[Rfam]
RNA sequence: UGGGAUGGCUAGACGGUCGCGUGGCAAGUAAUUGUCCCGAGGAACGUCCGGGCUCCGCAGAACAGGGUGGUGGGUAACGCCCACUCGGGGCAACCCGCAGGCUAGUGCCACAGAAAAUAGACCGCCAGGCUUCCUGGUAAGGGUGAAACGGUGGUGUAAGAGACCACCAGCGUCCCGGGUGACCGGGAUGGCUUGGUAAACCCCACUCGGAGCAAGGUCAGACAGACUGCGUUAUGAGGGCUGUUCGUUCCAUGCAGUCGGGUGGACCGCUAGAGGCUGUCGGCAACGGCAGUCGUAGAUAGAUGACCGUCCCGCUUCGGCGCGACAAAACCCGGCGUAUCGGCCAUCCCAUUCA
Number, nucleotide and partner (000 for none) at each position: 001u351002g350003g349004g348005a347006u346007g345008g344009c343010u342011a340012g311013a310014c309015g308016g307017u306018c305019g000020c039021g038022u000023g036024g035025c034026a033027a032028g000029u000030a000031a000032u027033u026034g025035u024036c023037c000038c021039g020040a000041g000042g000043a000044a338045c337046g336047u000048c335049c334050g333051g332052g331053c212054u211055c210056c209057g000058c000059a000060g246061a245062a244063c243064a000065g208066g207067g206068u205069g204070g084071u083072g082073g081074g080075u000076a000077a000078c000079g000080c074081c073082c072083a071084c070085u099086c097087g096088g095089g094090g000091c000092a000093a000094c089095c088096c087097g086098c000099a085100g203101g202102c000103u000104a000105g201106u200107g197108c196109c195110a000111c000112a000113g000114a000115a000116a000117a000118u000119a000120g000121a000122c142123c141124g138125c137126c136127a135128g134129g133130c000131u000132u000133c129134c128135u127136g126137g125138u124139a000140a000141g123142g122143g000144u000145g000146a000147a000148a000149c000150g168151g167152u166153g165154g164155u163156g000157u000158a000159a000160g000161a000162g000163a155164c154165c153166a152167c151168c150169a000170g192171c190172g189173u188174c187175c186176c185177g184178g183179g000180u000181g000182a000183c178184c177185g176186g175187g174188a173189u172190g171191g000192c170193u000194u000195g109196g108197u107198a000199a000200a106201c105202c101203c100204c069205a068206c067207u066208c065209g056210g055211a054212g053213c000214a000215a000216g268217g267218u266219c265220a000221g000222a000223c000224a000225g000226a258227c257228u256229g255230c254231g253232u000233u000234a000235u000236g000237a000238g250239g249240g248241c247242u000243g063244u062245u061246c060247g241248u240249u239250c238251c000252a000253u231254g230255c229256a228257g227258u226259c000260g000261g000262g000263u000264g000265g219266a218267c217268c216269g000270c000271u000272a000273g000274a000275g294276g293277c292278u291279g290280u289281c288282g287283g000284c000285a000286a000287c282288g281289g280290c279291a278292g277293u276294c275295g000296u000297a000298g000299a000300u000301a000302g000303a000304u000305g018306a017307c016308c015309g014310u013311c012312c000313c000314g000315c000316u000317u000318c000319g000320g000321c000322g000323c000324g000325a000326c000327a000328a000329a000330a000331c052332c051333c050334g049335g048336c046337g045338u044339a000340u011341c000342g010343g009344c008345c007346a006347u005348c004349c003350c002351a001352u000353u000354c000355a000
The family of this 355-nucleotide RNA from Arthrobacter sp. NIO-1057 is "Bacterial RNase P class A". NCBI's taxonomy places the organism under Bacteria, Actinomycetota, Actinomycetes, Micrococcales, Arthrobacter. The base pairs follow the family's consensus structure, which is taken from published work. Rfam classes the family as a ribozyme. Rfam's curators write: Ribonuclease P (RNase P) is a ubiquitous endoribonuclease, found in archaea, bacteria and eukarya as well as chloroplasts and mitochondria.